The record is a 132-nucleotide RNA from Labrus bergylta, which matches "Small nucleolar RNA SNORA47" in Rfam. A reference for the family is Huttenhofer et al. (2001), "RNomics: an experimental approach that identifies 201 candidates for novel, small, non-messenger RNAs in mouse", EMBO J.

[Rfam]
RNA sequence: UGGAGGACUGAGAAGGUUAAUCAGCUUGUGCUGUGCUGUUCUAACUGGUUAUAACCUCCAAGACUAACAUACAAACCACAUUUAUAUUUGGCUCUGCGACAAGCAGAACUGAUGUGUGUUUGUGAACAAUAU
Numbered sequence: 001u002g003g004a005g006g007a008c009u010g011a012g013a014a015g016g017u018u019a020a021u022c023a024g025c026u027u028g029u030g031c032u033g034u035g036c037u038g039u040u041c042u043a044a045c046u047g048g049u050u051a052u053a054a055c056c057u058c059c060a061a062g063a064c065u066a067a068c069a070u071a072c073a074a075a076c077c078a079c080a081u082u083u084a085u086a087u088u089u090g091g092c093u094c095u096g097c098g099a100c101a102a103g104c105a106g107a108a109c110u111g112a113u114g115u116g117u118g119u120u121u122g123u124g125a126a127c128a129a130u131a132u
Base pairs, nucleotide, nucleotide: 002059003058004057005056006055015046016045017044018043019040020039022038023037024036025035070124071123072122075120078117079116080115

The base pairs follow the family's consensus structure, which was predicted with WAR.